[Rfam]
RNA sequence: AAAAGAGAUAGAGGUCGCGGUGUUUAAGAGUAAGUUUAUAGAGCUUAAGCGAGCAAUGAAAUAAACCCAAAGGAAAAACCGCCGAAACAUAUAGUCAACAGCUUUAAGACUAUAUAGUUGGGGUUAUGUAGAAUAUACAUAACACUGUCAUAAAUUUAUUUAUGGGGAGCUAUCAUGAUA
Number, nucleotide and partner (000 for none) at each position: 001a000002a000003a000004a000005g000006a000007g174008a173009u172010a171011g170012a000013g000014g000015u000016c000017g082018c081019g080020g079021u078022g000023u076024u075025u074026a000027a000028g000029a000030g000031u000032a000033a000034g066035u065036u064037u063038a062039u061040a000041g000042a000043g000044c000045u000046u000047a000048a000049g000050c000051g000052a000053g000054c000055a000056a000057u000058g000059a000060a000061a039062u038063a037064a036065a035066c034067c000068c000069a000070a000071a000072g000073g000074a025075a024076a023077a000078a021079c020080c019081g018082c017083c000084g000085a000086a119087a118088c117089a115090u114091a113092u112093a111094g110095u109096c108097a000098a000099c000100a000101g000102c000103u000104u000105u000106a000107a000108g096109a095110c094111u093112a092113u091114a090115u089116a000117g088118u087119u086120g146121g145122g000123g143124u142125u141126a140127u139128g138129u137130a136131g000132a000133a000134u000135a000136u130137a129138c128139a127140u126141a125142a124143c123144a000145c121146u120147g000148u165149c164150a163151u162152a161153a160154a159155u000156u000157u000158a000159u154160u153161u152162a151163u150164g149165g148166g000167g000168a000169g000170c011171u010172a009173u008174c007175a000176u000177g000178a000179u000180a000
RNA: Lysine riboswitch aptamer